The family of this 109-nucleotide RNA from Corynebacterium kroppenstedtii is "TPP riboswitch aptamer (THI element)". NCBI's taxonomy places the organism under Bacteria, Bacillati, Mycobacteriales, Corynebacteriaceae, Corynebacterium kroppenstedtii.
[Rfam]
RNA sequence: CCACGACCCCACGGGAGCCCAUGGCACGGGCUGAGAGGGAGCUGACGCCGCUCCGACCGUCCGAACCUGUCCGGAUCAUGCCGGCGAAGGAAGAGAGGACCUUAGGCAU
Number, nucleotide and partner (000 for none) at each position: 001c000002c000003a000004c000005g000006a000007c000008c095009c000010c093011a060012c059013g058014g057015g000016a000017g031018c030019c029020c028021a000022u000023g000024g000025c000026a000027c000028g020029g019030g018031c017032u000033g000034a000035g000036a000037g000038g054039g053040a052041g051042c050043u000044g000045a000046c000047g000048c000049c000050g042051c041052u040053c039054c038055g000056a000057c014058c013059g012060u011061c000062c000063g000064a000065a000066c090067c089068u088069g000070u000071c084072c083073g082074g081075a000076u000077c000078a000079u000080g000081c074082c073083g072084g071085c000086g000087a000088a068089g067090g066091a000092a000093g010094a000095g008096a000097g000098g000099a000100c000101c000102u000103u000104a000105g000106g000107c000108a000109u000